[Rfam]
RNA sequence: UAUGCGAUGCAGGCCUGACGGAAUAAAGUGGAAUAACCACGUGGACUGUGUCGCUUAGAAAAAGCGCCGACCGUCUGGGCAAAGAUA
Numbered sequence: 001u002a003u004g005c006g007a008u009g010c011a012g013g014c015c016u017g018a019c020g021g022a023a024u025a026a027a028g029u030g031g032a033a034u035a036a037c038c039a040c041g042u043g044g045a046c047u048g049u050g051u052c053g054c055u056u057a058g059a060a061a062a063a064g065c066g067c068c069g070a071c072c073g074u075c076u077g078g079g080c081a082a083a084g085a086u087a
Stems, first nucleotide, its partner, number of pairs: 004054009015043001017075005028040004066080003